[Rfam]
RNA sequence: CCGAAUAGACACGGGAGCUUGGUGAAGCCAGGCUGAGAGGAUAGCCGUUAUGCUGUCGACCGUACAACCUGAUCUGGGUAAUGCCAGCGGAGGAAACGUCUUAGCCUUUGUGUA
Numbered sequence: 001c002c003g004a005a006u007a008g009a010c011a012c013g014g015g016a017g018c019u020u021g022g023u024g025a026a027g028c029c030a031g032g033c034u035g036a037g038a039g040g041a042u043a044g045c046c047g048u049u050a051u052g053c054u055g056u057c058g059a060c061c062g063u064a065c066a067a068c069c070u071g072a073u074c075u076g077g078g079u080a081a082u083g084c085c086a087g088c089g090g091a092g093g094a095a096a097c098g099u100c101u102u103a104g105c106c107u108u109u110g111u112g113u114a
Stems, first nucleotide, its partner, number of pairs: 007101004011063004017033005040057005068093003074087004
RNA: TPP riboswitch aptamer (THI element)